This 180-nucleotide sequence from Electrophorus electricus belongs to the Rfam family "Small nucleolar RNA SNORA81". Rfam 15.1 lists 1,161 matches to the family in 643 species. For this family Rfam cites "A novel experimental approach for systematic identification of box H/ACA snoRNAs from eukaryotes" (Gu et al., Nucleic Acids Res, 2005). Rfam classes the family as an H/ACA-box small nucleolar RNA. The organism belongs to Electrophorus, within Eukaryota.
RNA sequence: UCUUCCAUGCAAAAGAACUGUGCUUAAAUUACAGAAUCCAGGUCUCCUGGUUUAUGUAAUAAUGCUAGCGGAGUAGAAGUAGGUGGAAGAAGAGCAACUGCCCUGACCCGUCAAUGAAACGUGGUUGGACCUCUUUCUUAAUGUCCAGUGGCCUUCGUUUCAAGGUUCAGUGCGACAGUC
Number, nucleotide and partner (000 for none) at each position: 001u000002c000003u000004u000005c000006c000007a000008u000009g000010c000011a000012a000013a000014a000015g000016a000017a000018c073019u072020g000021u070022g069023c068024u067025u000026a000027a000028a063029u062030u061031a060032c000033a000034g000035a053036a000037u000038c050039c049040a048041g047042g046043u000044c000045u000046c042047c041048u040049g039050g038051u000052u000053u035054a000055u000056g000057u000058a000059a000060u031061a030062a029063u028064g000065c000066u000067a024068g023069c022070g021071g000072a019073g018074u000075a000076g000077a000078a000079g000080u000081a000082g000083g000084u000085g000086g000087a000088a000089g000090a000091a000092g000093a000094g000095c000096a000097a000098c000099u174100g173101c172102c000103c170104u169105g168106a167107c000108c000109c000110g000111u000112c000113a000114a000115u000116g000117a000118a000119a000120c000121g000122u151123g000124g149125u000126u147127g146128g145129a144130c000131c000132u000133c000134u000135u000136u000137c000138u000139u000140a000141a000142u000143g000144u129145c128146c127147a126148g000149u124150g000151g122152c000153c000154u000155u000156c000157g000158u000159u000160u000161c000162a000163a000164g000165g000166u000167u106168c105169a104170g103171u000172g101173c100174g099175a000176c000177a000178g000179u000180c000